[Rfam]
A member of the RNA family "Small nucleolar RNA SNORA77" from Chelonia mydas, 129 nucleotides long.
RNA sequence: GCAGACUCACUCUGUGCCUGACUGCAGUCUUCAGUCCAGGGGCUUUUUCAGUCUGCUAGAGUAAUGGUCCCUGGUUUGAGAACUCUUCUUUCCUUGUAGAAGACUUGCAAUUGCUCCUGGGACAUAAUU
Numbered sequence: 001g002c003a004g005a006c007u008c009a010c011u012c013u014g015u016g017c018c019u020g021a022c023u024g025c026a027g028u029c030u031u032c033a034g035u036c037c038a039g040g041g042g043c044u045u046u047u048u049c050a051g052u053c054u055g056c057u058a059g060a061g062u063a064a065u066g067g068u069c070c071c072u073g074g075u076u077u078g079a080g081a082a083c084u085c086u087u088c089u090u091u092c093c094u095u096g097u098a099g100a101a102g103a104c105u106u107g108c109a110a111u112u113g114c115u116c117c118u119g120g121g122a123c124a125u126a127a128u129u
Stems, first nucleotide, its partner, number of pairs: 001056006014043002017040004022034003068122004073117002076110003080106001084103004
Background
Rfam 15.1 lists 843 matches to the family in 607 species. Rfam describes the family as follows. ACA63 (SNORA77) is a member of the H/ACA class of snoRNAs that guide the sites of modification of uridines to pseudouridines. This snoRNA was identified by computational screening and its expression in mouse experimentally verified by Northern blot and primer extension analysis. ACA63 is proposed to guide the pseudouridylation of 18S rRNA U814. The base pairs follow the family's consensus structure, which was predicted with RNAalifold.